The family of this 54-nucleotide RNA from Acidobacterium capsulatum is "nadA riboswitch".
The family's consensus secondary structure is taken from published work.
The family's RNA type in Rfam is small RNA.
On this family, see Huang et al., RNA 2020: "Structure and ligand binding of the ADP-binding domain of the NAD(+) riboswitch".
RNA sequence: GGCGGCAACAUCCCCGCCGGUUGGGCGCGCGAGCGCAGUGAACCGGCUGCAGCC
Numbered sequence: 001g002g003c004g005g006c007a008a009c010a011u012c013c014c015c016g017c018c019g020g021u022u023g024g025g026c027g028c029g030c031g032a033g034c035g036c037a038g039u040g041a042a043c044c045g046g047c048u049g050c051a052g053c054c
Stems, first nucleotide, its partner, number of pairs: 001054003005050003013040001014038001016047007023039001025036004